[Rfam]
RNA: Clostridiales-1 RNA
RNA sequence: AAAUAUCAGGUUUUAGAUUUUUUAAUCAACUUGAACUUGUUUAUGAGUGGAUGAAAGAUUUUGAAAACUGCCCAGUAUAUGUAUAAAAGUGGGAUUGAGAUUCUACGACAUAUAAAUGGUGGGGAAAAGUGUGAGAAUGCGGAAUACGGAACCGCUCGCAGAUAUUA
Numbered sequence: 001a002a003a004u005a006u007c008a009g010g011u012u013u014u015a016g017a018u019u020u021u022u023u024a025a026u027c028a029a030c031u032u033g034a035a036c037u038u039g040u041u042u043a044u045g046a047g048u049g050g051a052u053g054a055a056a057g058a059u060u061u062u063g064a065a066a067a068c069u070g071c072c073c074a075g076u077a078u079a080u081g082u083a084u085a086a087a088a089g090u091g092g093g094a095u096u097g098a099g100a101u102u103c104u105a106c107g108a109c110a111u112a113u114a115a116a117u118g119g120u121g122g123g124g125a126a127a128a129g130u131g132u133g134a135g136a137a138u139g140c141g142g143a144a145u146a147c148g149g150a151a152c153c154g155c156u157c158g159c160a161g162a163u164a165u166u167a
Stems, first nucleotide, its partner, number of pairs: 002166006010068004016061002019058005025052003029048003032043004071123004076118003081113004089106007127156001131152002138146002